[Rfam]
A member of the RNA family "Bacterial RNase P class B" from Ruoffia halotolerans, 370 nucleotides long. From the family's description: Ribonuclease P (RNase P) is a ubiquitous endoribonuclease, found in archaea, bacteria and eukarya as well as chloroplasts and mitochondria. Its best characterised activity is the generation of mature 5'-ends of tRNAs by cleaving the 5'-leader elements of precursor-tRNAs. By type it is a ribozyme.
RNA sequence: AAUUUCGGAUAAUCGCGGUUAUUAAAUUAACUGAGGAAAGUCCAUGCUCGCACAAGCUGAGAUGCUUGUAGUGUUCGUGCUUAACGAAAAAAUAAGUUAAGGUACCCUAUUAGGUUAACGGCGAAAGAACUAUCUAAGGCUUCGGCUAUGAUUUAGUAAUUUGUAAAGUGCCACAGAGACGACGCUUAUAGGAAACUAUAAGAUUGGAACGCGGUAAACCCCUCGAGCGAGCAACCCAAACAUUGGUAGGGGCAUUUCUUCGAGUAGUAAAUGAACAAAAGAAGAGAACGAUAUUAUUAUCGUAGAUAGAUGAUUAUCCAUUAUCCCUAGUUCCUAUGCUAGAGAUAAUGACAGGACAUGGCUUAUAGAA
Dot-bracket structure: ...(((((((((((.((((((......))))))....[[[.[[[[[(((((((((((......)))))).....(((.(((((((..........))))))(((.(((...))).)).)((.(((......(((...(((....)))..))).......))).....(((((............(((((((....)))))))..........)))..))))).))))))))...(((...........)))...(((((((...................)))))))((((((....))))))........))))))).((((((.(((((......))))).)))))).......]]]]]]]].).)))